[Rfam]
RNA sequence: CGGUGAUGUCUCCUGACCGUUAUCAAGCGGAGGCACUCGGCCAUGCUGUGGGUCUAUGGGCCUUAGACGCAAGUCGUCAAGGGUGUGGCGUGAGGAAGGGUUUAAUGCCCU
Numbered sequence: 001c002g003g004u005g006a007u008g009u010c011u012c013c014u015g016a017c018c019g020u021u022a023u024c025a026a027g028c029g030g031a032g033g034c035a036c037u038c039g040g041c042c043a044u045g046c047u048g049u050g051g052g053u054c055u056a057u058g059g060g061c062c063u064u065a066g067a068c069g070c071a072a073g074u075c076g077u078c079a080a081g082g083g084u085g086u087g088g089c090g091u092g093a094g095g096a097a098g099g100g101u102u103u104a105a106u107g108c109c110c111u
Stems, first nucleotide, its partner, number of pairs: 001019004007035007036094004040089008050063005066078004097111005

The record is a 111-nucleotide RNA from Paenibacillus antri, which matches "epsC RNA" in Rfam. Pairs were carried over by alignment from the consensus structure, which is taken from published work. Lineage of the source: Bacteria > Bacillati > Bacilli > Paenibacillaceae > Paenibacillus. Rfam 15.1 lists 450 matches to the family in 334 species. A search with the family's covariance model found it, with a score of 107 bits.